[Rfam]
Shown here is a 205-nucleotide sequence, a member of the family "HNH endonuclease-associated RNA and ORF (HEARO) RNA". The match comes from Rfam's covariance-model search (96 bits). A reference for the family is Weinberg et al. (2009), "Exceptional structured noncoding RNAs revealed by bacterial metagenome analysis", Nature. The family's consensus secondary structure is taken from published work.
RNA sequence: AUUAUCUAACCCAUAAUUCAUAAGAAUUAUAACUAGCAAUAGUUUAGGUGAUUAGACUCAGCGAAAGCUACAUUGGUUUACUCAUGACACCUAGGAGCGAUGCCCUAACUCCUAGCAACUGUCAUUCUAUUUUAAAAGUCAUAAGGGUAAGUGGCGGUGAAUAGAAUGUAAAAAGGUAUUCCAAUAUUGUCGAAGGGCAAAUAAC
Numbered sequence: 001a002u003u004a005u006c007u008a009a010c011c012c013a014u015a016a017u018u019c020a021u022a023a024g025a026a027u028u029a030u031a032a033c034u035a036g037c038a039a040u041a042g043u044u045u046a047g048g049u050g051a052u053u054a055g056a057c058u059c060a061g062c063g064a065a066a067g068c069u070a071c072a073u074u075g076g077u078u079u080a081c082u083c084a085u086g087a088c089a090c091c092u093a094g095g096a097g098c099g100a101u102g103c104c105c106u107a108a109c110u111c112c113u114a115g116c117a118a119c120u121g122u123c124a125u126u127c128u129a130u131u132u133u134a135a136a137a138g139u140c141a142u143a144a145g146g147g148u149a150a151g152u153g154g155c156g157g158u159g160a161a162u163a164g165a166a167u168g169u170a171a172a173a174a175g176g177u178a179u180u181c182c183a184a185u186a187u188u189g190u191c192g193a194a195g196g197g198c199a200a201a202u203a204a205c
Stems, first nucleotide, its partner, number of pairs: 001052008014029002018025002033042001035040001055191003060069003072185005079178004087122002091115007101199006124167009136158001138155005